[Rfam]
RNA sequence: AGCGCGAGUGCGUGUAUGGACUCUGCCCGAGGUGGAUGCUCUGGUGUACUUCCCCGAUAUCAGAAACCUGCCUCGGACAGGGCCCUAUACGCACUUUAUUUGUCC
Numbered sequence: 001a002g003c004g005c006g007a008g009u010g011c012g013u014g015u016a017u018g019g020a021c022u023c024u025g026c027c028c029g030a031g032g033u034g035g036a037u038g039c040u041c042u043g044g045u046g047u048a049c050u051u052c053c054c055c056g057a058u059a060u061c062a063g064a065a066a067c068c069u070g071c072c073u074c075g076g077a078c079a080g081g082g083c084c085c086u087a088u089a090c091g092c093a094c095u096u097u098a099u100u101u102g103u104c105c
Stems, first nucleotide, its partner, number of pairs: 010092007018085002021082005027076009037066001040064008
RNA: mraW RNA